RNA sequence: UCCCCCUGCGCAUGUAACCAGGAGUCUGCGCCCCGCGAGUCCCGGGAGCGCCGCCGGCCGGUGCCAGGCGUGCCGGGCCAUGCAGCCUCAUCGUCGGUGCAGCUCCGCGCGGCGGUAGCGCCCCCUGCGAAGCGGCCCGUGAUGCCCCGGCCCCUGUAAACCUCGCCACCCGCUGGAACACGUUCAUUCCCGGACACACUCAGCUUUGGACACGCACCACUUGGCGCGUCUGCGACUAGCGCAGCGAGCGGAGAGGGCAGAGAGCGCCGGGAAGGCCUCCCCGCCCGGGCGGGGGAAGCCGGCGGCUGCAGCGCGGGAACACGCACUCCGCCUGGCACUGGCGGCUAGGG
Numbered sequence: 001u002c003c004c005c006c007u008g009c010g011c012a013u014g015u016a017a018c019c020a021g022g023a024g025u026c027u028g029c030g031c032c033c034c035g036c037g038a039g040u041c042c043c044g045g046g047a048g049c050g051c052c053g054c055c056g057g058c059c060g061g062u063g064c065c066a067g068g069c070g071u072g073c074c075g076g077g078c079c080a081u082g083c084a085g086c087c088u089c090a091u092c093g094u095c096g097g098u099g100c101a102g103c104u105c106c107g108c109g110c111g112g113c114g115g116u117a118g119c120g121c122c123c124c125c126u127g128c129g130a131a132g133c134g135g136c137c138c139g140u141g142a143u144g145c146c147c148c149g150g151c152c153c154c155u156g157u158a159a160a161c162c163u164c165g166c167c168a169c170c171c172g173c174u175g176g177a178a179c180a181c182g183u184u185c186a187u188u189c190c191c192g193g194a195c196a197c198a199c200u201c202a203g204c205u206u207u208g209g210a211c212a213c214g215c216a217c218c219a220c221u222u223g224g225c226g227c228g229u230c231u232g233c234g235a236c237u238a239g240c241g242c243a244g245c246g247a248g249c250g251g252a253g254a255g256g257g258c259a260g261a262g263a264g265c266g267c268c269g270g271g272a273a274g275g276c277c278u279c280c281c282c283g284c285c286c287g288g289g290c291g292g293g294g295g296a297a298g299c300c301g302g303c304g305g306c307u308g309c310a311g312c313g314c315g316g317g318a319a320c321a322c323g324c325a326c327u328c329c330g331c332c333u334g335g336c337a338c339u340g341g342c343g344g345c346u347a348g349g350g
Base pairs, nucleotide, nucleotide: 001295002294003293004292005291007289009287010286021042022041023040026035028033044281045280046279047278048277050276051275052274056110059107060106061105065099068095072092075089077086078085112157113156114155115154118152120151121150122149127145128144129143132140133139134138161271162270163269165267166266169264171262173260176258181255183253184252185251188248190246199214200210201209203207221244222243224242228240229239298346300344302342303341305339307337308336309335310333311332315328316327317326